[Rfam]
RNA sequence: GCGUGGGCCACGCCUCCCCAACGAGGCGCGACCCAUCUGAGAGGAUGGGAGUA
Numbered sequence: 001g002c003g004u005g006g007g008c009c010a011c012g013c014c015u016c017c018c019c020a021a022c023g024a025g026g027c028g029c030g031a032c033c034c035a036u037c038u039g040a041g042a043g044g045a046u047g048g049g050a051g052u053a
Base pairs, nucleotide, nucleotide: 011028012027013026014025015024016023033048034047035046036045037044038043
RNA: serC leader
Organism: Hyphococcus luteus